[Rfam]
RNA sequence: UGUGAAAUAAAUCACAUACAAACAUACACCCCUUUGUUUGAGCGUGAACAUUUCUCCCAUCCCCUUUGUGUAACAUAGAAAGGCGCCUUCCGGUUUCGGAAGGCGCCUUUUCUUU
Numbered sequence: 001u002g003u004g005a006a007a008u009a010a011a012u013c014a015c016a017u018a019c020a021a022a023c024a025u026a027c028a029c030c031c032c033u034u035u036g037u038u039u040g041a042g043c044g045u046g047a048a049c050a051u052u053u054c055u056c057c058c059a060u061c062c063c064c065u066u067u068g069u070g071u072a073a074c075a076u077a078g079a080a081a082g083g084c085g086c087c088u089u090c091c092g093g094u095u096u097c098g099g100a101a102g103g104c105g106c107c108u109u110u111u112c113u114u115u
Stems, first nucleotide, its partner, number of pairs: 002063001004054005013046003017042001019040006078111015
Listeria sRNA rli61: a 115-nucleotide sequence from Planococcus salinus.
The family's RNA type in Rfam is cis-regulatory element.
For this family Rfam cites "The Listeria transcriptional landscape from saprophytism to virulence" (Toledo-Arana et al., Nature, 2009).
The source organism's lineage runs through Bacteria, Bacillati, Caryophanales, Caryophanaceae and Planococcus.